Rfam assigns this 239-nucleotide sequence from Streptomyces nitrosporeus to the family "Streptomyces sRNA 4677". Located in the intergenic region between anti-sigma factor SCO4677 gene and a putative regulatory protein gene SCO4676. scr4677 expression requires the SCO4677 activity and scr4677 sRNA itself seem to affect the levels of the SCO4676-associated transcripts. Taxonomically the source falls in Streptomyces (Bacteria, Actinomycetes, Kitasatosporales, Streptomycetaceae). The family's RNA type in Rfam is small RNA.
RNA sequence: CGUCGCGGUGACCCACGAGGUAAAAGGCUUUCAAGUAAGGAAAGAAAUGAACUUCCCCACCCAACCCGACCCCGUUCAGGUCGUGUCACUCACUCGGGUGACAUAGGGCAACUCAGCUGGAUUUGGGUCGGGUUGCCGUGCAUAAGCUCACCCCGACAACCACAGACAUGAGACGGCCCCCGACGGGACAGACAUCCCGGCCGAGGGCCUGACCACCGAGGAAGUACAGGAGCUUCCCG
Numbered sequence: 001c002g003u004c005g006c007g008g009u010g011a012c013c014c015a016c017g018a019g020g021u022a023a024a025a026g027g028c029u030u031u032c033a034a035g036u037a038a039g040g041a042a043a044g045a046a047a048u049g050a051a052c053u054u055c056c057c058c059a060c061c062c063a064a065c066c067c068g069a070c071c072c073c074g075u076u077c078a079g080g081u082c083g084u085g086u087c088a089c090u091c092a093c094u095c096g097g098g099u100g101a102c103a104u105a106g107g108g109c110a111a112c113u114c115a116g117c118u119g120g121a122u123u124u125g126g127g128u129c130g131g132g133u134u135g136c137c138g139u140g141c142a143u144a145a146g147c148u149c150a151c152c153c154c155g156a157c158a159a160c161c162a163c164a165g166a167c168a169u170g171a172g173a174c175g176g177c178c179c180c181c182g183a184c185g186g187g188a189c190a191g192a193c194a195u196c197c198c199g200g201c202c203g204a205g206g207g208c209c210u211g212a213c214c215a216c217c218g219a220g221g222a223a224g225u226a227c228a229g230g231a232g233c234u235u236c237c238c239g
Stems, first nucleotide, its partner, number of pairs: 007217004017075001019073001086101006116152001118150003175209005181203002185198004220237005